[Rfam]
The record is a 104-nucleotide sequence from Psychromonas sp. B3M02, which matches "Vibrio RNA AS9" in Rfam. The family's consensus secondary structure was predicted with RNAfold. From the family's description: Identified by direct cloning an parallel sequencing experiments with 5S/tRNA depletion. Confirmed by Northern blot. By type it is an antisense RNA. Taxonomically the source falls in Psychromonas (Bacteria, Pseudomonadota, Alteromonadales, Psychromonadaceae). For this family Rfam cites "Experimental discovery of sRNAs in Vibrio cholerae by direct cloning, 5S/tRNA depletion and parallel sequencing" (Liu et al., Nucleic Acids Res, 2009).
RNA sequence: UUGUUCACAACGCUGCUCUGUUAGGGUUAAACAGAUUAAGCCUCGACCGUGUGUCGCCAUAAAGUUAAUCGCUUCUGGUGUCACCAUAUCCGCAGCCAUGAUCA
Numbered sequence: 001u002u003g004u005u006c007a008c009a010a011c012g013c014u015g016c017u018c019u020g021u022u023a024g025g026g027u028u029a030a031a032c033a034g035a036u037u038a039a040g041c042c043u044c045g046a047c048c049g050u051g052u053g054u055c056g057c058c059a060u061a062a063a064g065u066u067a068a069u070c071g072c073u074u075c076u077g078g079u080g081u082c083a084c085c086a087u088a089u090c091c092g093c094a095g096c097c098a099u100g101a102u103c104a
Base pairs, nucleotide, nucleotide: 003058005056007054008053009028010027011026013024014023015022035050036049041045066104068102069101070100071096072095075092077090078089079088080087